[Rfam]
RNA sequence: AGUGGUGGUAAAGCUUGCAUGAAGGGGCUACACACAGGCACUGUUGUUGCCUUCACUUGUCCCCUGGGAAGGUCUGAGACAAGGGUCAGUAAUAACCACCAAGCAGGUGGCCCCAGUAAGCCCUGGGGGUGGCUCACUAGAAAAGCCCUCGUGAUUGUGGGCCUGGGUGAAUGAAGGUGUGGGAAGCCCCUCUCCUGACUGCCAGGAGGCUGACGCCAACACCCAGGCUUCACUUGGAAGAGCCCAUGACCAGCUAAUCUAAGUGCGAUGUGCGAGAUGGUUUCACUGUUACAGUGGAACCAUAACUCAAUUCAGACUACUCUAUCAACACU
Numbered sequence: 001a002g003u004g005g006u007g008g009u010a011a012a013g014c015u016u017g018c019a020u021g022a023a024g025g026g027g028c029u030a031c032a033c034a035c036a037g038g039c040a041c042u043g044u045u046g047u048u049g050c051c052u053u054c055a056c057u058u059g060u061c062c063c064c065u066g067g068g069a070a071g072g073u074c075u076g077a078g079a080c081a082a083g084g085g086u087c088a089g090u091a092a093u094a095a096c097c098a099c100c101a102a103g104c105a106g107g108u109g110g111c112c113c114c115a116g117u118a119a120g121c122c123c124u125g126g127g128g129g130u131g132g133c134u135c136a137c138u139a140g141a142a143a144a145g146c147c148c149u150c151g152u153g154a155u156u157g158u159g160g161g162c163c164u165g166g167g168u169g170a171a172u173g174a175a176g177g178u179g180u181g182g183g184a185a186g187c188c189c190c191u192c193u194c195c196u197g198a199c200u201g202c203c204a205g206g207a208g209g210c211u212g213a214c215g216c217c218a219a220c221a222c223c224c225a226g227g228c229u230u231c232a233c234u235u236g237g238a239a240g241a242g243c244c245c246a247u248g249a250c251c252a253g254c255u256a257a258u259c260u261a262a263g264u265g266c267g268a269u270g271u272g273c274g275a276g277a278u279g280g281u282u283u284c285a286c287u288g289u290u291a292c293a294g295u296g297g298a299a300c301c302a303u304a305a306c307u308c309a310a311u312u313c314a315g316a317c318u319a320c321u322c323u324a325u326c327a328a329c330a331c332u
Stems, first nucleotide, its partner, number of pairs: 001332004008325003015274001023065005036052005041046001074315005084251004096110005111128006129247004134242001151233003277303011